[Rfam]
RNA sequence: UUAUACAGAUUAGCUGCCUAAAUUAGGCAAUGGCUGGUGACUAAUGUCACCGGCCU
Numbered sequence: 001u002u003a004u005a006c007a008g009a010u011u012a013g014c015u016g017c018c019u020a021a022a023u024u025a026g027g028c029a030a031u032g033g034c035u036g037g038u039g040a041c042u043a044a045u046g047u048c049a050c051c052g053g054c055c056u
Stems, first nucleotide, its partner, number of pairs: 015029004032055010
A member of the RNA family "Pseudomonas sRNA P26" from Thalassotalea sp. ND16A, 56 nucleotides long.
For this family Rfam cites "Identification of 17 Pseudomonas aeruginosa sRNAs and prediction of sRNA-encoding genes in 10 diverse pathogens using the bioinformatic tool sRNAPredict2" (Livny et al., Nucleic Acids Res, 2006).
A search with the family's covariance model found it, with a score of 44 bits.
This small RNA (sRNA) was computationally identified in the genome of the opportunistic pathogen Pseudomonas aeruginosa and its expression verified by northern blot analysis. P26 is conserved across many Gammaproteobacteria species and appears to be consistently located between the DNA directed RNA polymerase (beta subunit) and 50S ribosomal protein L7/L12 genes.
The family's RNA type in Rfam is non-coding RNA gene.